The family of this 52-nucleotide RNA from Amborella trichopoda is "Plastid-ccsA-ndhD-1 3UTR RNA". On this family, see Zandueta-Criado and Bock, Nucleic Acids Res 2004: "Surprising features of plastid ndhD transcripts: addition of non-encoded nucleotides and polysome association of mRNAs with an unedited start codon". From the family's description: Plastid-ccsA-ndhD-1 is a non-coding RNA (ncRNA) recognised in plastids. It was found in the three prime untranslated region (3UTR) of ccsA and ndhD genes, its 3UTR location suggests a role in transcript maturation. NCBI's taxonomy places the organism under Eukaryota, Euphyllophyta, Amborellales, Amborellaceae, Amborella.
RNA sequence: GAUUUUUUUAGAAUCAUUCGAAUCAAGUGGUGAUUCGAAUGAUUCUCAAAAA
Numbered sequence: 001g002a003u004u005u006u007u008u009u010a011g012a013a014u015c016a017u018u019c020g021a022a023u024c025a026a027g028u029g030g031u032g033a034u035u036c037g038a039a040u041g042a043u044u045c046u047c048a049a050a051a052a
Stems, first nucleotide, its partner, number of pairs: 007049002010046016